[Rfam]
RNA sequence: GCCUUAUCAAGAGCGGCGGAGGAACAGGUCCUGUGAAGCCCGGCAACCAUUCACACGAUAGUGAAACGGUGCUAAUUCCUGCGGAAGAGAUUCCGAGAGAUGAGGA
Numbered sequence: 001g002c003c004u005u006a007u008c009a010a011g012a013g014c015g016g017c018g019g020a021g022g023a024a025c026a027g028g029u030c031c032u033g034u035g036a037a038g039c040c041c042g043g044c045a046a047c048c049a050u051u052c053a054c055a056c057g058a059u060a061g062u063g064a065a066a067c068g069g070u071g072c073u074a075a076u077u078c079c080u081g082c083g084g085a086a087g088a089g090a091u092u093c094c095g096a097g098a099g100a101u102g103a104g105g106a
Stems, first nucleotide, its partner, number of pairs: 002105007013041001015040003021031003025081004042073004047069002050065004077098001082095005
Dot-bracket structure: .(((((((....(.(((...(((.[[[[)))......))))((((.((.((((........))))..))))))...(]]]](((((....)))))..)))))))).